[Rfam]
RNA sequence: CGAGCCGGAGCGGGAGAGUCCCCAUCACGAAUGGGGCGCCGAAGGAGCAAUCUCCCCGUCAAUCUCUCAGGUACCAGCUACCGCUUCAGGCCA
Numbered sequence: 001c002g003a004g005c006c007g008g009a010g011c012g013g014g015a016g017a018g019u020c021c022c023c024a025u026c027a028c029g030a031a032u033g034g035g036g037c038g039c040c041g042a043a044g045g046a047g048c049a050a051u052c053u054c055c056c057c058g059u060c061a062a063u064c065u066c067u068c069a070g071g072u073a074c075c076a077g078c079u080a081c082c083g084c085u086u087c088a089g090g091c092c093a
Stems, first nucleotide, its partner, number of pairs: 007087007020036004038072003041068002045066003052058001
Background
A member of the RNA family "Glycine riboswitch aptamer" from Amycolatopsis taiwanensis, 93 nucleotides long. Lineage of the source: Bacteria > Bacillati > Actinomycetes > Pseudonocardiaceae > Amycolatopsis. For this family Rfam cites "A glycine-dependent riboswitch that uses cooperative binding to control gene expression" (Mandal et al., Science, 2004). It scores 59 bits against the family's covariance model.